Notes: Small nucleolar RNA SNORD72: an 80-nucleotide RNA sequence from Pantherophis guttatus. The family has 16 seed sequences and 726 matches in Rfam 15.1. The pairing is the family consensus, mapped onto this sequence. For this family Rfam cites "RNomics: an experimental approach that identifies 201 candidates for novel, small, non-messenger RNAs in mouse" (Huttenhofer et al., EMBO J, 2001). It is annotated as a C/D-box small nucleolar RNA. Rfam links the family to the GO terms nucleolus and RNA processing. Rfam's curators write: snoRNA HBII-240 belongs to the CD family of snoRNAs. It is the human orthologue of the mouse MBII-240 and is predicted to guide 2'O-ribose methylation of the large 28S rRNA at residue U4590. A search with the family's covariance model found it, with a score of 73 bits.

RNA sequence: AGCUUAUCUGUGAUGUUCUUAAAACCAAAGUCUGAACAUCUGAUUUCCUAAGUGAUUUCGCUUUGUAACUGAGAUAAGCU
Numbered sequence: 001a002g003c004u005u006a007u008c009u010g011u012g013a014u015g016u017u018c019u020u021a022a023a024a025c026c027a028a029a030g031u032c033u034g035a036a037c038a039u040c041u042g043a044u045u046u047c048c049u050a051a052g053u054g055a056u057u058u059c060g061c062u063u064u065g066u067a068a069c070u071g072a073g074a075u076a077a078g079c080u
Stems, first nucleotide, its partner, number of pairs: 002079007